[Rfam]
RNA sequence: UGGCUGAUGAUGAUUGAUCUAUUAGAUCUUAGCGGAUUUCAGUGAGACUCGUCGAUGAUCUUAAUCUUGUUGUUACACACGCUGAAGUCA
Numbered sequence: 001u002g003g004c005u006g007a008u009g010a011u012g013a014u015u016g017a018u019c020u021a022u023u024a025g026a027u028c029u030u031a032g033c034g035g036a037u038u039u040c041a042g043u044g045a046g047a048c049u050c051g052u053c054g055a056u057g058a059u060c061u062u063a064a065u066c067u068u069g070u071u072g073u074u075a076c077a078c079a080c081g082c083u084g085a086a087g088u089c090a
Stems, first nucleotide, its partner, number of pairs: 001090005